[Rfam]
RNA sequence: CCGGUGGAUUCGCCGCGAGAGGCGUCCUAUAUCUGUUGGGCCGGCUUGCCGGCUAUGGCGAUAAACGGUGCGCGGAAUAAGCGUUGUGGACCCGGGGGCAGUGCCCGGCGCCUCCACCAAGGGGGGCGAAACAGGCUCGACACGCGUGGUAAAGGCCCAUUUUUCGCUCGGCAUGGUUCCGCCGUUAUCGGGCCAUUCUACAGGUGCCAACGACAACGAGGCACUCGCUCUCGCCGCGUAAGCGGUGUUAGCGCGGUUCGGGGGGCACCGGGCAACAGAAGCCCCCCACU
Dot-bracket structure: .......................................(((((....)))))...(((((.....((((.((........(((.(((...(((((.......)))))(((((((......)))))))............))))))........)).))))..)))))[[[[.(((.(((]]]].....))))))..........................................................[[[[..((((((.]]]]...........))))))...
Numbered sequence: 001c002c003g004g005u006g007g008a009u010u011c012g013c014c015g016c017g018a019g020a021g022g023c024g025u026c027c028u029a030u031a032u033c034u035g036u037u038g039g040g041c042c043g044g045c046u047u048g049c050c051g052g053c054u055a056u057g058g059c060g061a062u063a064a065a066c067g068g069u070g071c072g073c074g075g076a077a078u079a080a081g082c083g084u085u086g087u088g089g090a091c092c093c094g095g096g097g098g099c100a101g102u103g104c105c106c107g108g109c110g111c112c113u114c115c116a117c118c119a120a121g122g123g124g125g126g127c128g129a130a131a132c133a134g135g136c137u138c139g140a141c142a143c144g145c146g147u148g149g150u151a152a153a154g155g156c157c158c159a160u161u162u163u164u165c166g167c168u169c170g171g172c173a174u175g176g177u178u179c180c181g182c183c184g185u186u187a188u189c190g191g192g193c194c195a196u197u198c199u200a201c202a203g204g205u206g207c208c209a210a211c212g213a214c215a216a217c218g219a220g221g222c223a224c225u226c227g228c229u230c231u232c233g234c235c236g237c238g239u240a241a242g243c244g245g246u247g248u249u250a251g252c253g254c255g256g257u258u259c260g261g262g263g264g265g266c267a268c269c270g271g272g273c274a275a276c277a278g279a280a281g282c283c284c285c286c287c288a289c290u
Stems, first nucleotide, its partner, number of pairs: 040053005057168005067161004072156002082146003086143003092108005109128007169184004174195003178192003254270004260287006
Alphaproteobacteria transfer-messenger RNA: a 290-nucleotide RNA sequence from Acidisphaera rubrifaciens. It scores 246 bits against the family's covariance model. The family's RNA type in Rfam is non-coding RNA gene. Clan: tRNA clan.